[Rfam]
RNA: mir-166 microRNA precursor family
RNA sequence: GUUGAGAGGAACGUUGUCUGGCUCGAGGUGAUGGAGAUGGAAGAGUACUCUCUACUCACUCAUCACUAACUUUCAAUCUCGGACCAGGCUUCAUUCCCCCCAGC
Number, nucleotide and partner (000 for none) at each position: 001g104002u103003u102004g101005a000006g099007a000008g097009g096010a095011a094012c000013g092014u000015u000016g089017u088018c087019u086020g085021g084022c000023u000024c081025g080026a079027g000028g000029u000030g000031a000032u000033g000034g000035a000036g000037a000038u000039g000040g000041a000042a000043g000044a000045g000046u000047a000048c000049u000050c000051u000052c000053u000054a000055c000056u000057c000058a000059c000060u000061c000062a000063u000064c000065a000066c000067u000068a000069a000070c000071u000072u000073u000074c000075a000076a000077u000078c000079u026080c025081g024082g000083a000084c021085c020086a019087g018088g017089c016090u000091u000092c013093a000094u011095u010096c009097c008098c000099c006100c000101c004102a003103g002104c001